Rfam assigns this 156-nucleotide sequence from Marininema mesophilum to the family "glmS glucosamine-6-phosphate activated ribozyme aptamer". The source organism's lineage runs through Bacteria, Bacillati, Bacillota, Thermoactinomycetaceae and Marininema. A search with the family's covariance model found it, with a score of 102 bits. The family's consensus secondary structure is taken from published work.
Nucleotides: 156
Base pairs, nucleotide, nucleotide: 020035021034022033023032024031025030044075045074046073047072048071053064054063055062056061076095077094078093079092080091081090100146101145102144103143104142105141106140114131115130116129117128118127119126120125
Number, partner (000 for none) and nucleotide at each position: 001000u002000c003000a004000u005000g006000u007000u008000g009000u010000g011000a012000a013000g014000c015000g016000c017000c018000a019000g020035g021034a022033c023032u024031g025030c026000a027000a028000a029000g030025g031024c032023a033022g034021u035020u036000g037000a038000c039000g040000a041000g042000g043000u044075g045074g046073a047072g048071g049000g050000a051000a052000a053064u054063c055062g056061a057000u058000c059000c060000u061056u062055c063054g064053g065000c066000g067000g068000a069000u070000a071048c072047c073046u074045c075044c076095c077094g078093g079092c080091u081090u082000u083000a084000g085000c086000a087000u088000c089000g090081a091080a092079g093078c094077c095076g096000u097000g098000g099000g100146g101145c102144c103143a104142a105141u106140g107000c108000a109000c110000a111000a112000a113000u114131g115130g116129g117128u118127g119126g120125g121000g122000u123000g124000a125120c126119c127118u128117a129116u130115c131114u132000g133000a134000c135000a136000a137000a138000g139000g140106c141105a142104u143103u144102g145101g146100c147000a148000c149000g150000a151000u152000g153000c154000u155000a156000u